[Rfam]
RNA sequence: AAAGCAGGUUGCAAUUCUGCUUCAUUUUGUGGAGUAUAGUCAUUAUCUUGCUGAAAAAUAUCUGUGUUAAUCAUUUUUACUUUGUCUCUAUGAGGAUAAAAUAAUGACAAAAUGACAUGGACAAUU
Dot-bracket structure: ..((((((.........((((((.......))))))..........)))))).........((((((((.(.....(((.(((((((......))))))).)))......).))))))))......
Numbered sequence: 001a002a003a004g005c006a007g008g009u010u011g012c013a014a015u016u017c018u019g020c021u022u023c024a025u026u027u028u029g030u031g032g033a034g035u036a037u038a039g040u041c042a043u044u045a046u047c048u049u050g051c052u053g054a055a056a057a058a059u060a061u062c063u064g065u066g067u068u069a070a071u072c073a074u075u076u077u078u079a080c081u082u083u084g085u086c087u088c089u090a091u092g093a094g095g096a097u098a099a100a101a102u103a104a105u106g107a108c109a110a111a112a113u114g115a116c117a118u119g120g121a122c123a124a125u126u
Stems, first nucleotide, its partner, number of pairs: 003052006018036006062120008071111001077104003081100007
Overview: This 126-nucleotide sequence from Otolemur garnettii belongs to the Rfam family "Small nucleolar RNA SNORA69". The organism belongs to Otolemur, within Eukaryota. By type it is an H/ACA-box small nucleolar RNA.